This 77-nucleotide RNA from Crocodylus porosus belongs to the Rfam family "Mammalian CPEB3 ribozyme". A reference for the family is Salehi-Ashtiani et al. (2006), "A genomewide search for ribozymes reveals an HDV-like sequence in the human CPEB3 gene", Science.
[Rfam]
RNA sequence: UUGGUUCUAUACAAGGCCACAGCAAAGGCAUUCAUGGCACGGUCCAGUCAGAUUCCAGUGAAUCUGCAAAUUCUGCU
Numbered sequence: 001u002u003g004g005u006u007c008u009a010u011a012c013a014a015g016g017c018c019a020c021a022g023c024a025a026a027g028g029c030a031u032u033c034a035u036g037g038c039a040c041g042g043u044c045c046a047g048u049c050a051g052a053u054u055c056c057a058g059u060g061a062a063u064c065u066g067c068a069a070a071u072u073c074u075g076c077u
Stems, first nucleotide, its partner, number of pairs: 015044004021077004026072002028040001049066007